Shown here is a 77-nucleotide RNA from Homo sapiens, a member of the family "Small nucleolar RNA SNORD112".
Pairs were carried over by alignment from the consensus structure, which was predicted with WAR.

[Rfam]
RNA sequence: UGGACCAAUGAUGAGACAGUGUUUAUGAACAAAAGAUCAUGAUUAAUCCAGUUCUGCACAAAACACUGAGGUCCAUU
Numbered sequence: 001u002g003g004a005c006c007a008a009u010g011a012u013g014a015g016a017c018a019g020u021g022u023u024u025a026u027g028a029a030c031a032a033a034a035g036a037u038c039a040u041g042a043u044u045a046a047u048c049c050a051g052u053u054c055u056g057c058a059c060a061a062a063a064c065a066c067u068g069a070g071g072u073c074c075a076u077u
Base pairs, nucleotide, nucleotide: 001075002074003073004072005071006070
A reference for the family is Cavaille et al. (2002), "Identification of tandemly-repeated C/D snoRNA genes at the imprinted human 14q32 domain reminiscent of those at the Prader-Willi/Angelman syndrome region", Hum Mol Genet.
Its family is annotated with RNA processing and nucleolus in the Gene Ontology.
The family has 13 seed sequences and 191 matches in Rfam 15.1.